Rfam assigns this 120-nucleotide RNA sequence from Hoyosella rhizosphaerae to the family "SAM (S-adenosyl methionine) riboswitch aptamer". Its family is annotated with S-adenosylmethionine metabolic process and regulation of gene expression in the Gene Ontology.
RNA sequence: GGUCAUGAGUAGCAGCAGAAAGCCCCGGCUUGCUGUUCGGCAACCCUCCAACCGCGGUGGGGUGCCCCGGGUGAUGACCUGGCUGUUCGGCACCGACGUGUUGAGCGGCAAGCGCGGGCC
Numbered sequence: 001g002g003u004c005a006u007g008a009g010u011a012g013c014a015g016c017a018g019a020a021a022g023c024c025c026c027g028g029c030u031u032g033c034u035g036u037u038c039g040g041c042a043a044c045c046c047u048c049c050a051a052c053c054g055c056g057g058u059g060g061g062g063u064g065c066c067c068c069g070g071g072u073g074a075u076g077a078c079c080u081g082g083c084u085g086u087u088c089g090g091c092a093c094c095g096a097c098g099u100g101u102u103g104a105g106c107g108g109c110a111a112g113c114g115c116g117g118g119c120c
Base pairs, nucleotide, nucleotide: 001079002078003077004076009038011037012036013035014034015033016032021030022029039066040065041064044062045061046060048057049056082109083108084107085106086105087104088103089102090101091100092099093098
It scores 109 bits against the family's covariance model. Rfam's curators write: SAM-IV is a mRNA element that regulates gene expression via direct sensing of S-adenosylmethionine (SAM or AdoMet).